Annotation
mir-15 microRNA precursor family: an 89-nucleotide sequence from Clupea harengus. The family has 164 seed sequences and 2,045 matches in Rfam 15.1. It scores 71 bits against the family's covariance model. About the family: This family represents the related mir-15a and mir-15b sequences. In humans miR-15a and miR-16 are clustered within 0.5 kb at 13q14. This region has been shown to be deleted in more than half of B cell chronic lymphocytic leukaemias (CLL). Both miR-15a and miR-16 are deleted or down-regulated in more than two thirds of CLL cases. The mature sequence is excised from the 5' arm of the hairpin. The base pairs follow the family's consensus structure, which was predicted with RNAalifold. The family is grouped with related families in Rfam's "mir-15 clan".
RNA sequence: GGCGGCCUUGCUUUAGCAGCACGUAAAUAUUGGAGUUAAUCCUGUACCGAAGCCUCCAGUAUUGAUCGUGCUGCUGUAGUAAGGCAGGC
Numbered sequence: 001g002g003c004g005g006c007c008u009u010g011c012u013u014u015a016g017c018a019g020c021a022c023g024u025a026a027a028u029a030u031u032g033g034a035g036u037u038a039a040u041c042c043u044g045u046a047c048c049g050a051a052g053c054c055u056c057c058a059g060u061a062u063u064g065a066u067c068g069u070g071c072u073g074c075u076g077u078a079g080u081a082a083g084g085c086a087g088g089c
Base pairs, nucleotide, nucleotide: 001089003087005085006084014076015075016074017073018072019071020070021069022068023067024065026063027062028061029060030059031058032057033056034055035054